[Rfam]
RNA sequence: AAGUAGCCGUGCCGAGUGUGAAGUUGCUGCGGGAAAUCGCCGGAAUUUCCUCAACAACUUC
Numbered sequence: 001a002a003g004u005a006g007c008c009g010u011g012c013c014g015a016g017u018g019u020g021a022a023g024u025u026g027c028u029g030c031g032g033g034a035a036a037u038c039g040c041c042g043g044a045a046u047u048u049c050c051u052c053a054a055c056a057a058c059u060u061c
Stems, first nucleotide, its partner, number of pairs: 020061007028053002031050002033047001037043001

The record is a 61-nucleotide sequence from Mycobacteroides franklinii, which matches "Mycobacterium sRNA Ms_IGR-8" in Rfam. On this family, see Li et al., RNA 2013: "Identification of small RNAs in Mycobacterium smegmatis using heterologous Hfq". It scores 45 bits against the family's covariance model.